[Rfam]
RNA sequence: ACCUCAUGAAAGACAAGGUAGUGAGACAAAAAAAAAUAAUGAACAUCUCACUACCCAUGUCUUUCACAAUGAA
Numbered sequence: 001a002c003c004u005c006a007u008g009a010a011a012g013a014c015a016a017g018g019u020a021g022u023g024a025g026a027c028a029a030a031a032a033a034a035a036a037u038a039a040u041g042a043a044c045a046u047c048u049c050a051c052u053a054c055c056c057a058u059g060u061c062u063u064u065c066a067c068a069a070u071g072a073a
Base pairs, nucleotide, nucleotide: 008065009064010063011062012061013060014059015058017055018054020052021051022050023049024048025047026046
mir-71 microRNA precursor family: a 73-nucleotide RNA sequence from Dendroctonus ponderosae. The base pairs follow the family's consensus structure, which was predicted with RNAalifold. The match comes from Rfam's covariance-model search (53 bits). Gene Ontology terms of the family: miRNA-mediated post-transcriptional gene silencing and RISC complex.